[Rfam]
The family of this 378-nucleotide RNA from Parenemella sanctibonifatiensis is "Bacterial RNase P class A".
A search with the family's covariance model found it, with a score of 261 bits.
The source organism's lineage runs through Bacteria, Bacillati, Actinomycetota, Propionibacteriaceae and Parenemella.
The base pairs follow the family's consensus structure, which is taken from published work.
Nucleotides: 378
Stems, first nucleotide, its partner, number of pairs: 001374010011363001012332007020031004036361003040358005045203004052255004057199005062076005077091001078089004092194002097192002099188003114133002116129005141159006161183001162181008207276004213267006247259004296315008
Number, partner (000 for none) and nucleotide at each position: 001374c002373g003372a004371g005370u006369c007368g008367g009366c010365c011363g012332g013331g014330u015329g016328a017327u018326c019000g020031c021030g022029g023028c024000g025000c026000a027000a028023g029022u030021c031020g032000a033000g034000g035000a036361a037360a038359g039000u040358c041357c042356g043355g044354a045203c046202u047201c048200c049000a050000c051000a052255g053254a054253g055252c056000a057199g058198g059197g060196u061195g062076g063075u064074a065073g066072g067000u068000a069000a070000c071000g072066c073065c074064u075063a076062c077091c078089c079088g080087g081086g082000g083000c084000g085000a086081c087080c088079c089078g090000c091077g092194g093193g094000c095000c096000a097192g098191u099188g100187c101186c102000a103000c104000a105000g106000a107000g108000a109000a110000c111000a112000g113000a114133c115132c116129g117128c118127c119126c120125c121000g122000c123000a124000a125120g126119g127118g128117g129116u130000a131000a132115g133114g134000g135000u136000g137000a138000a139000a140000c141159g142158g143157u144156g145155g146154u147000g148000c149000a150000a151000g152000a153000g154146a155145c156144c157143a158142c159141c160000a161183g162181c163180g164179c165178g166177u167176c168175a169174g170000g171000u172000g173000a174169c175168u176167g177166g178165c179164g180163u181162g182000g183161c184000u185000c186101g187100g188099c189000a190000a191098a192097c193093c194092c195061c196060a197059c198058c199057c200048g201047g202046a203045g204000c205000a206000a207276g208275a209274c210273c211000a212000a213267g214266a215265g216264g217263g218262c219000c220000g221000c222000u223000u224000c225000g226000g227000c228000g229000g230000c231000c232000u233000g234000c235000g236000g237000a238000g239000g240000c241000g242000u243000a244000c245000g246000a247259g248258g249257g250256c251000u252055g253054c254053u255052c256250g257249c258248c259247c260000g261000a262218g263217c264216c265215u266214u267213c268000g269000g270000g271000u272000a273210g274209g275208u276207c277000g278000c279000a280000u281000c282000g283000c284000g285000u286000a287000c288000g289000c290000g291000c292000g293000g294000g295000a296315g297314g298313c299312c300311g301310c302309c303308g304000g305000c306000g307000a308303c309302g310301g311300c312299g313298g314297u315296c316000a317000c318000a319000g320000a321000u322000g323000g324000a325000u326018g327017a328016u329015c330014a331013c332012c333000g334000g335000c336000c337000c338000c339000g340000c341000a342000g343000g344000g345000g346000u347000c348000a349000c350000a351000g352000a353000a354044u355043c356042c357041g358040g359038c360037u361036u362000a363011c364000a365010g366009g367008c368007c369006g370005a371004c372003u373002c374001g375000u376000u377000c378000c